Rfam assigns this 95-nucleotide sequence from Spiroplasma apis to the family "Purine riboswitch aptamer". Pairs were carried over by alignment from the consensus structure, which is taken from published work. It scores 38 bits against the family's covariance model.
[Rfam]
RNA sequence: AUAGUGUAGUUAAUAGUUACUCUUAUAAGUUCACAUAUUGGGUGGACGUUUCUACAUCGGACCAAUCCGAUACUAAUAUAACUAUUAUUGACAAU
Numbered sequence: 001a002u003a004g005u006g007u008a009g010u011u012a013a014u015a016g017u018u019a020c021u022c023u024u025a026u027a028a029g030u031u032c033a034c035a036u037a038u039u040g041g042g043u044g045g046a047c048g049u050u051u052c053u054a055c056a057u058c059g060g061a062c063c064a065a066u067c068c069g070a071u072a073c074u075a076a077u078a079u080a081a082c083u084a085u086u087a088u089u090g091a092c093a094a095u
Stems, first nucleotide, its partner, number of pairs: 018081001021078001023076003029047006056071006